Plastid-clpP 5UTR RNA: a 69-nucleotide RNA sequence from Populus tomentosa. Rfam describes the family as follows. Plastid clpP is a non-coding RNA (ncRNA) recognised in plastids. It was found in the prime untranslated region (5UTR) of a protease complex subunit (clpP) in plastids, suggesting a posible cis-regulatory function. A search with the family's covariance model found it, with a score of 70 bits. Rfam 15.1 lists 2,105 matches to the family in 526 species.
RNA sequence: AAUUCUAUUUGUUGGAACAAAGAGAAGCACAUCUAUUCCAUACCAGAUAAGUAACAAUACGCAAUGAGA
Numbered sequence: 001a002a003u004u005c006u007a008u009u010u011g012u013u014g015g016a017a018c019a020a021a022g023a024g025a026a027g028c029a030c031a032u033c034u035a036u037u038c039c040a041u042a043c044c045a046g047a048u049a050a051g052u053a054a055c056a057a058u059a060c061g062c063a064a065u066g067a068g069a
Stems, first nucleotide, its partner, number of pairs: 003022002006019001008017003043068001051060003